[Rfam]
RNA: FMN riboswitch aptamer (RFN element)
Organism: Neptunomonas japonica
RNA sequence: UUUCGUUCUCGGGGCGGGGUGUAAUUCCCCACCGGCGGUAAAAAUAGAGGGUAGCGCACGUUACCUUAUUGUUUAAGCCCGCGAGCGCCUUUUGUUUUAGUGCUUUAUAGCCUGUUAUAAAAGGGUCAGCAGAUCUGGUGAGAACCCAGAGCCGACGGUUAUAGUCCGGAUGAUAGAGAGCGUGU
Numbered sequence: 001u002u003u004c005g006u007u008c009u010c011g012g013g014g015c016g017g018g019g020u021g022u023a024a025u026u027c028c029c030c031a032c033c034g035g036c037g038g039u040a041a042a043a044a045u046a047g048a049g050g051g052u053a054g055c056g057c058a059c060g061u062u063a064c065c066u067u068a069u070u071g072u073u074u075a076a077g078c079c080c081g082c083g084a085g086c087g088c089c090u091u092u093u094g095u096u097u098u099a100g101u102g103c104u105u106u107a108u109a110g111c112c113u114g115u116u117a118u119a120a121a122a123g124g125g126u127c128a129g130c131a132g133a134u135c136u137g138g139u140g141a142g143a144a145c146c147c148a149g150a151g152c153c154g155a156c157g158g159u160u161a162u163a164g165u166c167c168g169g170a171u172g173a174u175a176g177a178g179a180g181c182g183u184g185u
Base pairs, nucleotide, nucleotide: 004182005181006180007179008178009177010176017029018028019027031165032164033154034153035082036081037080038079077152078151085130086129134150135149136148137147138146156168157167158166